[Rfam]
RNA sequence: ACUCCUGUUAAGAGCCGAUUAACAUCUUCACGGUAAGGUAUCGUUAUUCAGAGUUUUCUGGAUUUUUCAGAGCGGUUCUCCCUCUGUUUGACGCCUCCCUGUUAACUUCGAGAGCCGUGAAUUCGCGGCUCUUUUUCU
Numbered sequence: 001a002c003u004c005c006u007g008u009u010a011a012g013a014g015c016c017g018a019u020u021a022a023c024a025u026c027u028u029c030a031c032g033g034u035a036a037g038g039u040a041u042c043g044u045u046a047u048u049c050a051g052a053g054u055u056u057u058c059u060g061g062a063u064u065u066u067u068c069a070g071a072g073c074g075g076u077u078c079u080c081c082c083u084c085u086g087u088u089u090g091a092c093g094c095c096u097c098c099c100u101g102u103u104a105a106c107u108u109c110g111a112g113a114g115c116c117g118u119g120a121a122u123u124c125g126c127g128g129c130u131c132u133u134u135u136u137c138u
Base pairs, nucleotide, nucleotide: 001044002043005014006013015037020035021034023032025030048061049060050059051058070084071083072082074081075080090103091102092101093100110133111132112131113130114129115128116127117126118125119124
Alphaproteobacterial sRNA BjrC1505: a 138-nucleotide RNA from Devosia oryzisoli. It scores 60 bits against the family's covariance model. Pairs were carried over by alignment from the consensus structure.